[Rfam]
The family of this 84-nucleotide RNA sequence from Zootermopsis nevadensis is "Mammalian CPEB3 ribozyme".
RNA sequence: UCUUGCAAAAAGGGGGUCACAGCAGGAGCGUUAAAUGUCGCAGUCCCAGUCGAACCCAUGUACUGAUGGGUCGUGAAUCCUGCU
Numbered sequence: 001u002c003u004u005g006c007a008a009a010a011a012g013g014g015g016g017u018c019a020c021a022g023c024a025g026g027a028g029c030g031u032u033a034a035a036u037g038u039c040g041c042a043g044u045c046c047c048a049g050u051c052g053a054a055c056c057c058a059u060g061u062a063c064u065g066a067u068g069g070g071u072c073g074u075g076a077a078u079c080c081u082g083c084u
Stems, first nucleotide, its partner, number of pairs: 013047005021084007028041003051073003055069002
Annotation:
Taxonomically the source falls in Zootermopsis (Eukaryota, Bilateria, Arthropoda, Hexapoda).